[Rfam]
RNA sequence: GUUGGUUAUGGAGAUAUGAUUCCAACGAGUAGCGUAGGAAAACUUAUUGGUUCUGUUUGUGCUAUUGCUGGUGUGUUAAUGGUCGGUUUCACUGUUCCUAUAAUCGUCAAUCAU
Numbered sequence: 001g002u003u004g005g006u007u008a009u010g011g012a013g014a015u016a017u018g019a020u021u022c023c024a025a026c027g028a029g030u031a032g033c034g035u036a037g038g039a040a041a042a043c044u045u046a047u048u049g050g051u052u053c054u055g056u057u058u059g060u061g062c063u064a065u066u067g068c069u070g071g072u073g074u075g076u077u078a079a080u081g082g083u084c085g086g087u088u089u090c091a092c093u094g095u096u097c098c099u100a101u102a103a104u105c106g107u108c109a110a111u112c113a114u
Stems, first nucleotide, its partner, number of pairs: 001114002004111001008107004014101003018097002021094001037077002040074001049063003
RNA: Potassium channel RNA editing signal
Organism: Octopus sinensis